Source information
Rfam assigns this 70-nucleotide RNA from Bombyx mori to the family "mir-2774 microRNA precursor family". Gene Ontology terms of the family: RISC complex and miRNA-mediated post-transcriptional gene silencing. It scores 53 bits against the family's covariance model. On this family, see Liu et al., BMC Genomics 2010: "MicroRNAs of Bombyx mori identified by Solexa sequencing". The family's consensus secondary structure was predicted with RNAalifold.
[Rfam]
RNA sequence: AUAAUUAUAGGAUCGUCGAUCUACCGAGUAAAUUCACCAGCUCGGUGUAAGAAGAUCUUCUCUUUGUCUU
Numbered sequence: 001a002u003a004a005u006u007a008u009a010g011g012a013u014c015g016u017c018g019a020u021c022u023a024c025c026g027a028g029u030a031a032a033u034u035c036a037c038c039a040g041c042u043c044g045g046u047g048u049a050a051g052a053a054g055a056u057c058u059u060c061u062c063u064u065u066g067u068c069u070u
Stems, first nucleotide, its partner, number of pairs: 004067002010061003015056003020052002022047008